[Rfam]
Record summary:
The record is a 110-nucleotide RNA sequence from Paraliobacillus sp. PM-2, which matches "BsrF" in Rfam. The family's consensus secondary structure was predicted with WAR. The organism belongs to Paraliobacillus, within Bacteria.
RNA sequence: GCGAUGAGCUAUUUUGCAUAAGCCGAAAGAUAUGCAUUAAUGCUAAACGUUACGUGGACUUAACGGUCUUUCGCCGCAAAACGUACAUGAUACUUGCAGAAGCAAGUGUA
Numbered sequence: 001g002c003g004a005u006g007a008g009c010u011a012u013u014u015u016g017c018a019u020a021a022g023c024c025g026a027a028a029g030a031u032a033u034g035c036a037u038u039a040a041u042g043c044u045a046a047a048c049g050u051u052a053c054g055u056g057g058a059c060u061u062a063a064c065g066g067u068c069u070u071u072c073g074c075c076g077c078a079a080a081a082c083g084u085a086c087a088u089g090a091u092a093c094u095u096g097c098a099g100a101a102g103c104a105a106g107u108g109u110a
Stems, first nucleotide, its partner, number of pairs: 014079004024073008034043002048065002090109008
Dot-bracket structure: .............((((......((((((((..((......))....((..............))))))))))..))))..........((((((((....)))))))).
For this family Rfam cites "Novel small RNA-encoding genes in the intergenic regions of Bacillus subtilis" (Saito et al., Gene, 2008).